This 106-nucleotide sequence from Spirodela intermedia belongs to the Rfam family "Small nucleolar RNA snoR97".
Rfam classes the family as an H/ACA-box small nucleolar RNA.
The family has 7 seed sequences and 862 matches in Rfam 15.1.
The source organism's lineage runs through Eukaryota, Viridiplantae, Streptophyta, Embryophyta and Spirodela.
Gene Ontology terms of the family: RNA processing and nucleolus.
A search with the family's covariance model found it, with a score of 91 bits.
RNA sequence: AUCAGAUGGUUUGCACGAAGGCUGAUAAACUCAUACAGUGUGUGUUGUCAUCAGCUUCAUCUUUGAUUAUCCCACGGGAUAGGAGUUAAAUAACAACACGAGAUUU
Dot-bracket structure: ........................................(((((((.....((((((.((((............))))..))))))......)))))))......